[Rfam]
RNA sequence: UGGCGCCCAACGGUGAGGCGUGGAUAAGGGGGAAUUCGUGAGGGAAGAGGCAUUUAAUGGUUCGGCCGAACAAAGCAGACAUCAGUUAAAGAAGGAUCGUCGGAGGAGCCUGCCAGGCCAUUCUUAAAGGUACAGUAGUGCGUAAGUAUGGGACAAGAAUUAAGUAAGCAUAAAGUUUUUGUUAAGCAAUUAAAAGAAGCUUUAAAGACACAGGGAGUAAAGGUUAAGAGUAAUGAUAUUUUAAAGUUUUUUGACCUUAUUAAGGACACCUGUCCGU
Dot-bracket structure: .....(((.....((.........))..)))....((.(.....).))..............................................(((...(...(.......)...)..)).)............(.((.(.((....)).))).)....(((((.................................)).)))......((((((((..(.((((.......)))).)......))))))))........(.((((....)))).)
Numbered sequence: 001u002g003g004c005g006c007c008c009a010a011c012g013g014u015g016a017g018g019c020g021u022g023g024a025u026a027a028g029g030g031g032g033a034a035u036u037c038g039u040g041a042g043g044g045a046a047g048a049g050g051c052a053u054u055u056a057a058u059g060g061u062u063c064g065g066c067c068g069a070a071c072a073a074a075g076c077a078g079a080c081a082u083c084a085g086u087u088a089a090a091g092a093a094g095g096a097u098c099g100u101c102g103g104a105g106g107a108g109c110c111u112g113c114c115a116g117g118c119c120a121u122u123c124u125u126a127a128a129g130g131u132a133c134a135g136u137a138g139u140g141c142g143u144a145a146g147u148a149u150g151g152g153a154c155a156a157g158a159a160u161u162a163a164g165u166a167a168g169c170a171u172a173a174a175g176u177u178u179u180u181g182u183u184a185a186g187c188a189a190u191u192a193a194a195a196g197a198a199g200c201u202u203u204a205a206a207g208a209c210a211c212a213g214g215g216a217g218u219a220a221a222g223g224u225u226a227a228g229a230g231u232a233a234u235g236a237u238a239u240u241u242u243a244a245a246g247u248u249u250u251u252u253g254a255c256c257u258u259a260u261u262a263a264g265g266a267c268a269c270c271u272g273u274c275c276g277u
Stems, first nucleotide, its partner, number of pairs: 006031003014026002036048002039045001095123001096121002101117001105113001136156001138154002141152001143150002161204003164200002211253008221239001223237004262277001264275004

The family of this 277-nucleotide sequence from Sciurus vulgaris is "Mason-Pfizer monkey virus packaging signal". This family represents a group of sequences that are related to the Mason-Pfizer monkey virus (MPMV) packaging signal. The match comes from Rfam's covariance-model search (144 bits). A reference for the family is Mustafa et al. (2004), "Mutational analysis of the predicted secondary RNA structure of the Mason-Pfizer monkey virus packaging signal", Virus Res. Lineage of the source: Eukaryota > Sarcopterygii > Sciuridae > Sciurini > Sciurus. It is annotated as a cis-regulatory element.